[Rfam]
RNA sequence: AAGGCGGAACCCGAAAAGCCGGAAUAGAGUAGGGC
Numbered sequence: 001a002a003g004g005c006g007g008a009a010c011c012c013g014a015a016a017a018g019c020c021g022g023a024a025u026a027g028a029g030u031a032g033g034g035c
Stems, first nucleotide, its partner, number of pairs: 003020003010034003

Overview
Rfam assigns this 35-nucleotide RNA to the family "DUF805b RNA". The base pairs follow the family's consensus structure, which is taken from published work.